The record is a 143-nucleotide RNA sequence from Hucho hucho, which matches "Small nucleolar RNA SNORD10" in Rfam. Rfam classes the family as a C/D-box small nucleolar RNA. The organism belongs to Hucho, within Eukaryota. The family has 22 seed sequences and 433 matches in Rfam 15.1. The base pairs follow the family's consensus structure, which was predicted with WAR. A search with the family's covariance model found it, with a score of 68 bits. The literature on the family includes a 2001 paper in EMBO J by Huttenhofer et al., "RNomics: an experimental approach that identifies 201 candidates for novel, small, non-messenger RNAs in mouse".

RNA sequence: GUAUAAUGAUGAAAUCCAUGCGUGUCAACUGACUCUGGAACCCCCUGAGUGUCUUAGUUCCGCCAGUCAGCGUUCUGUUGGCUAGCGUUUUCUAAACCUCAAGGCUCUGGAACUCAUGAUCAGAUUCCACACUGGCUGAAUAC
Number, nucleotide and partner (000 for none) at each position: 001g143002u142003a141004u140005a000006a000007u000008g000009a000010u000011g000012a000013a000014a000015u000016c000017c000018a000019u000020g000021c000022g000023u000024g000025u000026c000027a000028a000029c000030u000031g000032a000033c000034u000035c000036u000037g000038g000039a000040a000041c000042c000043c104044c103045c000046u101047g100048a099049g097050u096051g000052u000053c000054u000055u000056a000057g000058u000059u000060c000061c000062g000063c000064c000065a000066g000067u000068c000069a000070g000071c000072g000073u000074u000075c000076u000077g000078u000079u000080g000081g000082c000083u000084a000085g000086c000087g000088u000089u000090u000091u000092c000093u000094a000095a000096a050097c049098c000099u048100c047101a046102a000103g044104g043105c000106u000107c000108u000109g000110g000111a000112a000113c000114u000115c000116a000117u000118g000119a000120u000121c000122a000123g000124a000125u000126u000127c000128c000129a000130c000131a000132c000133u000134g000135g000136c000137u000138g000139a000140a004141u003142a002143c001